[Rfam]
Record summary
This 269-nucleotide RNA sequence from Nannospalax galili belongs to the Rfam family "Mason-Pfizer monkey virus packaging signal". The literature on the family includes a 2004 paper in Virus Res by Mustafa et al., "Mutational analysis of the predicted secondary RNA structure of the Mason-Pfizer monkey virus packaging signal". Rfam links the family to the GO term viral genome packaging. It scores 138 bits against the family's covariance model.
Nucleotides: 269
Base pairs, nucleotide, nucleotide: 006027007026011023012022013021033045034044035043080119081118089112090111092108093107094106095105096104128148130146131145134143135142136141153196154195155194156192157191204244205243206242207241208240209239213231214230215229216228217227254269256267257266258265259264
Number, partner (000 for none) and nucleotide at each position: 001000u002000g003000g004000c005000g006027c007026c008000a009000a010000c011023g012022u013021g014000a015000c016000u017000u018000g019000g020000a021013u022012a023011c024000u025000g026007g027006g028000c029000a030000c031000a032000a033045c034044g035043u036000g037000a038000g039000g040000g041000a042000c043035a044034c045033g046000a047000c048000g049000a050000a051000a052000a053000a054000a055000g056000a057000a058000g059000g060000g061000g062000u063000g064000c065000g066000c067000a068000c069000c070000c071000a072000c073000u074000c075000a076000a077000a078000u079000a080119g081118u082000u083000a084000g085000g086000a087000g088000a089112c090111g091000u092108c093107g094106c095105g096104g097000u098000a099000g100000c101000c102000u103000g104096c105095u106094g107093u108092g109000a110000c111090c112089g113000a114000a115000c116000c117000g118081a119080c120000a121000g122000g123000u124000a125000a126000g127000u128148u129000g130146g131145u132000c133000g134143u135142c136141a137000a138000u139000c140000a141136u142135g143134g144000g145131g146130c147000a148128a149000g150000a151000a152000u153196u154195g155194a156192g157191c158000c159000a160000g161000c162000a163000u164000c165000a166000g167000a168000u169000u170000u171000a172000u173000g174000u175000g176000a177000a178000g179000c180000a181000a182000u183000u184000g185000g186000g187000g188000g189000a190000u191157g192156c193000u194155u195154u196153a197000a198000a199000g200000g201000c202000a203000a204244g205243a206242g207241g208240a209239g210000u211000a212000a213231a214230g215229g216228u217227u218000a219000a220000g221000u222000c223000u224000g225000c226000a227217g228216a229215u230214u231213u232000a233000u234000u235000u236000c237000a238000u239209u240208u241207c242206u243205u244204u245000g246000a247000u248000u249000u250000u251000g252000u253000a254269a255000a256267g257266g258265a259264c260000a261000c262000u263000u264259g265258u266257c267256c268000c269254u